[Rfam]
RNA: Small Cajal body specific RNA 6
RNA sequence: GGUCAGUGAUGAAUAGUAAAAGGUCUGAUUUGCCCAGAAUAUUGCUUCCCGUACCAUCUAACUCCCAGCAGUUACUCUGCCAUCAAGCUGUAGAAAUGCUAUGUGUGGAAGAAUAUUUGCUGAUACAUUGUGAUACAUUCAGCUUGUGUCCUUGUAGAGUAUUGAAUAGACACCGCUGAAAUUGUUAUCCAACAUAAAACAAUAAAGGAGUUUUAAGUAUUGGAGGCUAUUAGAUGGGUAUAUGAACUCAGCUUUUUAAACUGAGACC
Numbered sequence: 001g002g003u004c005a006g007u008g009a010u011g012a013a014u015a016g017u018a019a020a021a022g023g024u025c026u027g028a029u030u031u032g033c034c035c036a037g038a039a040u041a042u043u044g045c046u047u048c049c050c051g052u053a054c055c056a057u058c059u060a061a062c063u064c065c066c067a068g069c070a071g072u073u074a075c076u077c078u079g080c081c082a083u084c085a086a087g088c089u090g091u092a093g094a095a096a097u098g099c100u101a102u103g104u105g106u107g108g109a110a111g112a113a114u115a116u117u118u119g120c121u122g123a124u125a126c127a128u129u130g131u132g133a134u135a136c137a138u139u140c141a142g143c144u145u146g147u148g149u150c151c152u153u154g155u156a157g158a159g160u161a162u163u164g165a166a167u168a169g170a171c172a173c174c175g176c177u178g179a180a181a182u183u184g185u186u187a188u189c190c191a192a193c194a195u196a197a198a199a200c201a202a203u204a205a206a207g208g209a210g211u212u213u214u215a216a217g218u219a220u221u222g223g224a225g226g227c228u229a230u231u232a233g234a235u236g237g238g239u240a241u242a243u244g245a246a247c248u249c250a251g252c253u254u255u256u257u258a259a260a261c262u263g264a265g266a267c268c
Base pairs, nucleotide, nucleotide: 001268002267003266004265037249038248040246042244045226046225047224048223049222051220052219062210063209064208065207066122067121068120069119070118071117080107084103085102087100088098130190132189133188134187135186136184137183145172146171147170149168152164154162